[Rfam]
Nucleotides: 073
Stems, first nucleotide, its partner, number of pairs: 001072007010025004027043005049065005
Number, partner (000 for none) and nucleotide at each position: 001072g002071a003070g004069c005068g006067c007066g008000u009000a010025g011024c012023u013022c014000a015000g016000a017000c018000g019000g020000u021000a022013g023012a024011g025010c026000a027043c028042g029041u030040g031039a032000c033000u034000u035000u036000u037000a038000a039031u040030c041029a042028u043027g044000g045000g046000g047000u048000c049065g050064a051063g052062g053061g054000u055000u056000c057000g058000a059000g060000u061053c062052c063051c064050u065049c066007c067006g068005c069004g070003c071002u072001c073000a
The record is a 73-nucleotide RNA from Rhodopseudomonas sp., which matches "tRNA" in Rfam.